The record is a 254-nucleotide sequence from Triplophysa tibetana, which matches "RNase MRP" in Rfam. It scores 139 bits against the family's covariance model. The literature on the family includes a 2006 paper in Nucleic Acids Res by Rosenblad et al., "Inventory and analysis of the protein subunits of the ribonucleases P and MRP provides further evidence of homology between the yeast and human enzymes". The organism belongs to Triplophysa, within Eukaryota.
[Rfam]
RNA sequence: GUGCACGCCUGAAAACUUGUAUCCUAAGCUACGUACUGGGAACAUAGUUUCACCACCAUUGCUUAGGGGAAAGUCUCCGGACCUUGGGCAGAAAUGUCCUGCAUGCCGCGCAGAACGGUCGCUUGCAUGGCGUAUCGAUGCUAAGACGUCUGUGACCGAGCUGUACGCCUGCAAGCCCGGCUUGUCAAUACAAAUAGAUACGCAAGUGUAGUACUACGUUACAUCAACAGAACGGGGCUCAUUCUCAGCGUGCG
Numbered sequence: 001g002u003g004c005a006c007g008c009c010u011g012a013a014a015a016c017u018u019g020u021a022u023c024c025u026a027a028g029c030u031a032c033g034u035a036c037u038g039g040g041a042a043c044a045u046a047g048u049u050u051c052a053c054c055a056c057c058a059u060u061g062c063u064u065a066g067g068g069g070a071a072a073g074u075c076u077c078c079g080g081a082c083c084u085u086g087g088g089c090a091g092a093a094a095u096g097u098c099c100u101g102c103a104u105g106c107c108g109c110g111c112a113g114a115a116c117g118g119u120c121g122c123u124u125g126c127a128u129g130g131c132g133u134a135u136c137g138a139u140g141c142u143a144a145g146a147c148g149u150c151u152g153u154g155a156c157c158g159a160g161c162u163g164u165a166c167g168c169c170u171g172c173a174a175g176c177c178c179g180g181c182u183u184g185u186c187a188a189u190a191c192a193a194a195u196a197g198a199u200a201c202g203c204a205a206g207u208g209u210a211g212u213a214c215u216a217c218g219u220u221a222c223a224u225c226a227a228c229a230g231a232a233c234g235g236g237g238c239u240c241a242u243u244c245u246c247a248g249c250g251u252g253c254g
Stems, first nucleotide, its partner, number of pairs: 002254007011246002015207006023067007038053001040051003072239002075237004087098004099113004116179003122175006130168004140161002148156003211222003